A member of the RNA family "Fluoride riboswitch aptamer (crcB RNA motif)" from Novosphingobium sp. Fuku2-ISO-50, 78 nucleotides long.
RNA sequence: CUGUCAUACGGCGAUGGAUUUCCGCCGGGUUUUCGGGCCGAACCGCCUUUACCAAAGGCUGAUGAUUCCUACCUGACG
Number, nucleotide and partner (000 for none) at each position: 001c000002u000003g000004u000005c000006a000007u000008a000009c000010g026011g025012c024013g023014a000015u000016g069017g068018a067019u000020u065021u064022c000023c013024g012025c011026c010027g000028g000029g000030u000031u000032u000033u000034c000035g000036g000037g000038c000039c000040g000041a000042a000043c000044c000045g059046c058047c057048u056049u000050u000051a000052c000053c000054a000055a000056a048057g047058g046059c045060u000061g000062a000063u000064g021065a020066u000067u018068c017069c016070u000071a000072c000073c000074u000075g000076a000077c000078g000
Annotation:
The organism belongs to Novosphingobium, within Bacteria.